RNA sequence: GGCCUCCUGGUACUUACCACAGGCUGUGUUCUCACACUGACAGCAUAGAAAGAGGAGAGAAACUAACCUGCCUACCCCAUACAUACCUCAGCCCAGGGCCUGUGCCUGAUCUGUAUUGCGAAUGAGGAGACAUUG
Numbered sequence: 001g002g003c004c005u006c007c008u009g010g011u012a013c014u015u016a017c018c019a020c021a022g023g024c025u026g027u028g029u030u031c032u033c034a035c036a037c038u039g040a041c042a043g044c045a046u047a048g049a050a051a052g053a054g055g056a057g058a059g060a061a062a063c064u065a066a067c068c069u070g071c072c073u074a075c076c077c078c079a080u081a082c083a084u085a086c087c088u089c090a091g092c093c094c095a096g097g098g099c100c101u102g103u104g105c106c107u108g109a110u111c112u113g114u115a116u117u118g119c120g121a122a123u124g125a126g127g128a129g130a131c132a133u134u135g
Base pairs, nucleotide, nucleotide: 004057005056006055007054008053020043022041026037027036028035029034075127076126078124079123080122089113090112091111094108095107096106097105
RNA: Small nucleolar RNA SNORA51
Organism: Callithrix jacchus